A member of the RNA family "mir-15 microRNA precursor family" from Salvator merianae, 84 nucleotides long. The organism belongs to Salvator, within Eukaryota. Rfam 15.1 lists 2,045 matches to the family in 649 species. Gene Ontology terms of the family: miRNA-mediated post-transcriptional gene silencing and RISC complex. On this family, see Lagos-Quintana et al., Science 2001: "Identification of novel genes coding for small expressed RNAs".
[Rfam]
RNA sequence: CCUUAGGGUGCUCUAGCAGCACAUCAUGAUUUGUAUGUCAUAGCAAAUAUGCAAGUCAUUGUUUGCUGCUUUAGGAUUUUAAGG
Numbered sequence: 001c002c003u004u005a006g007g008g009u010g011c012u013c014u015a016g017c018a019g020c021a022c023a024u025c026a027u028g029a030u031u032u033g034u035a036u037g038u039c040a041u042a043g044c045a046a047a048u049a050u051g052c053a054a055g056u057c058a059u060u061g062u063u064u065g066c067u068g069c070u071u072u073a074g075g076a077u078u079u080u081a082a083g084g
Stems, first nucleotide, its partner, number of pairs: 001084006015070007023062002026059011
Dot-bracket structure: ((((((........(((((((.((.(((((((((((............))))))))))).)).)))))))........))))))